[Rfam]
RNA sequence: CGUACAUACGGACCAUCGGUCUACCGAGCAAAUUCACCCGCUCGGCGGAAGAUCUUUCCUUUAUCGU
Numbered sequence: 001c002g003u004a005c006a007u008a009c010g011g012a013c014c015a016u017c018g019g020u021c022u023a024c025c026g027a028g029c030a031a032a033u034u035c036a037c038c039c040g041c042u043c044g045g046c047g048g049a050a051g052a053u054c055u056u057u058c059c060u061u062u063a064u065c066g067u
Stems, first nucleotide, its partner, number of pairs: 004064001006062001010058003015053003020049003024045006
mir-2774 microRNA precursor family: a 67-nucleotide sequence from Bombyx mori. A search with the family's covariance model found it, with a score of 67 bits. Rfam links the family to the GO terms miRNA-mediated post-transcriptional gene silencing and RISC complex. A reference for the family is Liu et al. (2010), "MicroRNAs of Bombyx mori identified by Solexa sequencing", BMC Genomics.